The record is a 54-nucleotide sequence from Eleutherodactylus coqui, which matches "Editing element of GABA-3 exon 9" in Rfam. The match comes from Rfam's covariance-model search (71 bits). By type it is a cis-regulatory element.
RNA sequence: AAAGUAGCUUAUGCUACCGCUAUGGACUGGUUCAUUGCUGUCUGUUAUGCAUUU
Numbered sequence: 001a002a003a004g005u006a007g008c009u010u011a012u013g014c015u016a017c018c019g020c021u022a023u024g025g026a027c028u029g030g031u032u033c034a035u036u037g038c039u040g041u042c043u044g045u046u047a048u049g050c051a052u053u054u
Base pairs, nucleotide, nucleotide: 001054002053003052007050008049010047011046013045014044016041017040019038020037022035023034024033025032026031